[Rfam]
RNA sequence: AUAUGAUAACUGCUCCGAGCCAGGUAUGUCUAAAGCGAUUGCUAUGAUGGCCUGGCCGGCAGGGUUCGCUGGGAAACCGGCGGGCCUCCCAGUGCGGAAAGGAGUACAGUAAUAUACUUU
Numbered sequence: 001a002u003a004u005g006a007u008a009a010c011u012g013c014u015c016c017g018a019g020c021c022a023g024g025u026a027u028g029u030c031u032a033a034a035g036c037g038a039u040u041g042c043u044a045u046g047a048u049g050g051c052c053u054g055g056c057c058g059g060c061a062g063g064g065u066u067c068g069c070u071g072g073g074a075a076a077c078c079g080g081c082g083g084g085c086c087u088c089c090c091a092g093u094g095c096g097g098a099a100a101g102g103a104g105u106a107c108a109g110u111a112a113u114a115u116a117c118u119u120u
Stems, first nucleotide, its partner, number of pairs: 011106006019056007027049004034043003062087011088097002
RNA: Molybdenum/Tungsten riboswitch aptamer (Moco RNA motif)